A member of the RNA family "DUF805b RNA" from Aquimarina sp. MMG016, 37 nucleotides long. Lineage of the source: Bacteria > Bacteroidota > Flavobacteriia > Flavobacteriaceae > Aquimarina.

[Rfam]
Nucleotides: 037
Base pairs, nucleotide, nucleotide: 002021003020004019005018010036011035012034
Number, partner (000 for none) and nucleotide at each position: 001000a002021a003020g004019g005018u006000g007000u008000a009000u010036g011035u012034c013000g014000a015000a016000a017000a018005a019004c020003c021002u022000a023000u024000a025000a026000a027000a028000a029000g030000a031000g032000u033000a034012g035011g036010c037000a